The family of this 245-nucleotide RNA sequence from Tieghemiomyces parasiticus is "ACEA small nucleolar RNA U3". Small nucleolar RNAs (snoRNAs) are involved in the processing and modification of rRNA in the nucleolus. There are two main classes of snoRNAs: the box C/D class, and the box H/ACA class. U3 snoRNA is a member of the box C/D class. Indeed, the box C/D element is a subset of the six short sequence elements found in all U3 snoRNAs, namely boxes A, A', B, C, C', and D. The U3 snoRNA secondary structure is characterised by a small 5' domain (with boxes A and A'), and a larger 3' domain (with boxes B, C, C', and D), the two domains being linked by a single-stranded hinge. Boxes B and C form the B/C motif, which appears to be exclusive to U3 snoRNAs, and boxes C' and D form the C'/D motif. The latter is functionally similar to the C/D motifs found in other snoRNAs. The 5' domain and the hinge region act as a pre-rRNA-binding domain. The 3' domain has conserved protein-binding sites. Both the box B/C and box C'/D motifs are sufficient for nuclear retention of U3 snoRNA. The box C'/D motif is also necessary for nucleolar localisation, stability and hyper-methylation of U3 snoRNA. Both box B/C and C'/D motifs are involved in specific protein interactions and are necessary for the rRNA processing functions of U3 snoRNA. The literature on the family includes a 1997 paper in Nucleic Acids Res by Zwieb, "The uRNA database". The source organism's lineage runs through Eukaryota, Opisthokonta, Fungi, Dimargaritales and Tieghemiomyces. The family has 28 seed sequences and 2,156 matches in Rfam 15.1. A search with the family's covariance model found it, with a score of 58 bits.
RNA sequence: UCGACUGUACUCUACAGGAUCAUGUUCGUAGUUAAUAUGUUCUGAUCUCUCAGUACUUUAGAUGGAAAAUCAGCUGGCUGAUGACACGUUGUACGCCAUCCGUAAAGGGAGGCUGUGGUCGCUACACCUUUUCGGUGCGGUAGACCCUCGAUGAUCUUGCGUUGCUAGUACUCGCCAUCUGCGCCCGUGGGCCGGGUGGUUGACGUCUAGCUUUCUUGCAAGGAUGGUCGUACCGUCUGACAGCC
Numbered sequence: 001u002c003g004a005c006u007g008u009a010c011u012c013u014a015c016a017g018g019a020u021c022a023u024g025u026u027c028g029u030a031g032u033u034a035a036u037a038u039g040u041u042c043u044g045a046u047c048u049c050u051c052a053g054u055a056c057u058u059u060a061g062a063u064g065g066a067a068a069a070u071c072a073g074c075u076g077g078c079u080g081a082u083g084a085c086a087c088g089u090u091g092u093a094c095g096c097c098a099u100c101c102g103u104a105a106a107g108g109g110a111g112g113c114u115g116u117g118g119u120c121g122c123u124a125c126a127c128c129u130u131u132u133c134g135g136u137g138c139g140g141u142a143g144a145c146c147c148u149c150g151a152u153g154a155u156c157u158u159g160c161g162u163u164g165c166u167a168g169u170a171c172u173c174g175c176c177a178u179c180u181g182c183g184c185c186c187g188u189g190g191g192c193c194g195g196g197u198g199g200u201u202g203a204c205g206u207c208u209a210g211c212u213u214u215c216u217u218g219c220a221a222g223g224a225u226g227g228u229c230g231u232a233c234c235g236u237c238u239g240a241c242a243g244c245c
Base pairs, nucleotide, nucleotide: 002039003038006034009032010031011030016026017025019023046066047065048064050062051061053059073244074243075242076241091233092232093231094230095229096227097226098225099224100223101222105158106157107156108155115147117145121141162221163220164219165218167216